[Rfam]
A member of the RNA family "Archaeal RNase P" from Natronomonas pharaonis, 371 nucleotides long. The family is grouped with related families in Rfam's "RNaseP clan".
RNA sequence: GGCAGAGGAAGCCCGGUCCCCGUGGGCGCGCUUUGUGCGCCCAUGAGGAAAGUCCCCCCACCCUCCGGGCAGGUGACCGGACGCAAGUCCGGAGCGGGAGACCGCUGGCACUGGAACAGAAACGAGACCCCUUCCGCCGAGCAAUGAGGCGUGCGACCCGACCCGCGAGGGAAGGAAGCUAACCCGCCGAGCGCGCGUCGCCGUACGGCGACGCCCGGGCGAGCGGCAUCAGCCGCGAGCCGACGCGGAAGAAGGGAUGGAACGGCGAAUCCUCACCGGUGCAAGCCCGUCGCAACAUGGUAGCCCGGAGACGCGACGGGCGCUCAGCCGAAUGCCGGGUCAAAACAGAAGGGGGCUUACUCUCCUCAGCC
Numbered sequence: 001g002g003c004a005g006a007g008g009a010a011g012c013c014c015g016g017u018c019c020c021c022g023u024g025g026g027c028g029c030g031c032u033u034u035g036u037g038c039g040c041c042c043a044u045g046a047g048g049a050a051a052g053u054c055c056c057c058c059c060a061c062c063c064u065c066c067g068g069g070c071a072g073g074u075g076a077c078c079g080g081a082c083g084c085a086a087g088u089c090c091g092g093a094g095c096g097g098g099a100g101a102c103c104g105c106u107g108g109c110a111c112u113g114g115a116a117c118a119g120a121a122a123c124g125a126g127a128c129c130c131c132u133u134c135c136g137c138c139g140a141g142c143a144a145u146g147a148g149g150c151g152u153g154c155g156a157c158c159c160g161a162c163c164c165g166c167g168a169g170g171g172a173a174g175g176a177a178g179c180u181a182a183c184c185c186g187c188c189g190a191g192c193g194c195g196c197g198u199c200g201c202c203g204u205a206c207g208g209c210g211a212c213g214c215c216c217g218g219g220c221g222a223g224c225g226g227c228a229u230c231a232g233c234c235g236c237g238a239g240c241c242g243a244c245g246c247g248g249a250a251g252a253a254g255g256g257a258u259g260g261a262a263c264g265g266c267g268a269a270u271c272c273u274c275a276c277c278g279g280u281g282c283a284a285g286c287c288c289g290u291c292g293c294a295a296c297a298u299g300g301u302a303g304c305c306c307g308g309a310g311a312c313g314c315g316a317c318g319g320g321c322g323c324u325c326a327g328c329c330g331a332a333u334g335c336c337g338g339g340u341c342a343a344a345a346c347a348g349a350a351g352g353g354g355g356c357u358u359a360c361u362c363u364c365c366u367c368a369g370c371c
Base pairs, nucleotide, nucleotide: 001371002370003369005367006366007365008364009363010361011360012339013338014337015336016335017334021045022044023043024042025041026040027039028038029037030036050358051357052356054355055354056353057352058351059281060280061279062278064309065308066307067306068305069304072277073276074275075274076273077092078091079090080089081088093106094105095104096103097102107272108271112268114266128256129255130254131251132250133249134248135247136246137245149179150178285321286320287319288318289317290316291315292314293313
Ribonuclease P (RNase P) is a ubiquitous endoribonuclease, found in archaea, bacteria and eukarya as well as chloroplasts and mitochondria. Its best characterised activity is the generation of mature 5'-ends of tRNAs by cleaving the 5'-leader elements of precursor-tRNAs. Cellular RNase Ps are ribonucleoproteins. RNA from bacterial RNase Ps retains its catalytic activity in the absence of the protein subunit, i.e. it is a ribozyme. Isolated eukaryotic and archaeal RNase P RNA has not been shown to retain its catalytic function, but is still essential for the catalytic activity of the holoenzyme. Although the archaeal and eukaryotic holoenzymes have a much greater protein content than the bacterial ones, the RNA cores from all the three lineages are homologous -- helices corresponding to P1, P2, P3, P4, and P10/11 are common to all cellular RNase P RNAs. Yet, there is considerable sequence variation, particularly among the eukaryotic RNAs.
Rfam's curators put it in the seed alignment.
The organism belongs to Natronomonas pharaonis, within Archaea.
The literature on the family includes a 1998 paper in Annu Rev Biochem by Frank and Pace, "Ribonuclease P: unity and diversity in a tRNA processing ribozyme".